[Rfam]
RNA sequence: GACGCGACUGGCGCAUGAAGGUGGACCACCACCAGGGAGCGAAAGGAGCGGAGGCCGUGCGCCUGGGUCUUCGCC
Numbered sequence: 001g002a003c004g005c006g007a008c009u010g011g012c013g014c015a016u017g018a019a020g021g022u023g024g025a026c027c028a029c030c031a032c033c034a035g036g037g038a039g040c041g042a043a044a045g046g047a048g049c050g051g052a053g054g055c056c057g058u059g060c061g062c063c064u065g066g067g068u069c070u071u072c073g074c075c
Stems, first nucleotide, its partner, number of pairs: 003041003008036002010063005021032004052070005
A member of the RNA family "ZMP/ZTP riboswitch aptamer (pfl RNA motif)" from Nonomuraea muscovyensis, 75 nucleotides long.